[Rfam]
RNA sequence: AAUGCAGAUGAUGAAAGCUUGACCUUAGGUGGGAUGUUGAGGCUGUUUUGGUCUCUCUUGCUCUCCCACCAGUGCUAGGCUUGUCAUAGUUACACUGAUGCAUU
Numbered sequence: 001a002a003u004g005c006a007g008a009u010g011a012u013g014a015a016a017g018c019u020u021g022a023c024c025u026u027a028g029g030u031g032g033g034a035u036g037u038u039g040a041g042g043c044u045g046u047u048u049u050g051g052u053c054u055c056u057c058u059u060g061c062u063c064u065c066c067c068a069c070c071a072g073u074g075c076u077a078g079g080c081u082u083g084u085c086a087u088a089g090u091u092a093c094a095c096u097g098a099u100g101c102a103u104u
Base pairs, nucleotide, nucleotide: 001104002103003102004101005100006099
Shown here is a 104-nucleotide RNA from Microcaecilia unicolor, a member of the family "Small nucleolar RNA SNORD46". It is annotated as a C/D-box small nucleolar RNA. It scores 59 bits against the family's covariance model. Clan: SNORD46 clan. Lineage of the source: Eukaryota > Eumetazoa > Chordata > Siphonopidae > Microcaecilia. Rfam describes the family as follows. U40 is a C/D box small nucleolar RNA, also known as snoZ153 in plants. The human sequence has also been annotated in the sequence databases as U46. U40 is encoded in intron 2 of the ribosomal protein S8 gene in human, and is hypothesised to guide methylation of 2'-O-ribose residues on 28S ribosomal RNA. This family represents vertebrate U40.